RNA sequence: CUCUUAUGAAGAGUGGCGGAGGGAUGUGCCCGUUGAAGCCCGGCAACCAGCGAUACGCAUUGGUGCCAAAUCACCCGGAGCGACUCGCUUCGAAAGAUGAGAG
Numbered sequence: 001c002u003c004u005u006a007u008g009a010a011g012a013g014u015g016g017c018g019g020a021g022g023g024a025u026g027u028g029c030c031c032g033u034u035g036a037a038g039c040c041c042g043g044c045a046a047c048c049a050g051c052g053a054u055a056c057g058c059a060u061u062g063g064u065g066c067c068a069a070a071u072c073a074c075c076c077g078g079a080g081c082g083a084c085u086c087g088c089u090u091c092g093a094a095a096g097a098u099g100a101g102a103g
Stems, first nucleotide, its partner, number of pairs: 001103007013041001015040003021031003026074003042067004047063002050058003071095001076092006
Rfam assigns this 103-nucleotide RNA from Planococcaceae bacterium Storch 2/2-2 to the family "SAM riboswitch aptamer (S box leader)". About the family: The SAM riboswitch is found upstream of a number of genes which code for proteins involved in methionine or cysteine biosynthesis in Gram-positive bacteria. For this family Rfam cites "The S box regulon: a new global transcription termination control system for methionine and cysteine biosynthesis genes in gram-positive bacteria" (Grundy and Henkin, Mol Microbiol, 1998). The source organism's lineage runs through Bacteria, Bacillati, Bacilli, Caryophanales and Caryophanaceae.